S15-Methanomicrobia ribosomal protein leader: a 75-nucleotide sequence from Methanocorpusculum bavaricum. A reference for the family is Eckert and Weinberg (2020), "Discovery of 20 novel ribosomal leader candidates in bacteria and archaea", BMC Microbiol.
RNA sequence: AGCACUUAGGUGCUGACUGAAGUAAGUCCGACGUGUCUGUCUACUAAGACACUGCCUUUUUGGCUUUGGGAUUAC
Numbered sequence: 001a002g003c004a005c006u007u008a009g010g011u012g013c014u015g016a017c018u019g020a021a022g023u024a025a026g027u028c029c030g031a032c033g034u035g036u037c038u039g040u041c042u043a044c045u046a047a048g049a050c051a052c053u054g055c056c057u058u059u060u061u062g063g064c065u066u067u068g069g070g071a072u073u074a075c
Stems, first nucleotide, its partner, number of pairs: 001014005022075004028070002033052005054064003

Clan: Ribosomal Protein S15 Leader clan.